RNA: Selenocysteine insertion sequence 1
Organism: Acanthosepion pharaonis
RNA sequence: CUGUUUGUAAUGAUAGUUUGUUCCUUAAUUCUAUUGGAAUGGAACAAAUUGGAUGUUUAACAG
Numbered sequence: 001c002u003g004u005u006u007g008u009a010a011u012g013a014u015a016g017u018u019u020g021u022u023c024c025u026u027a028a029u030u031c032u033a034u035u036g037g038a039a040u041g042g043a044a045c046a047a048a049u050u051g052g053a054u055g056u057u058u059a060a061c062a063g
Stems, first nucleotide, its partner, number of pairs: 001063005015050010029039003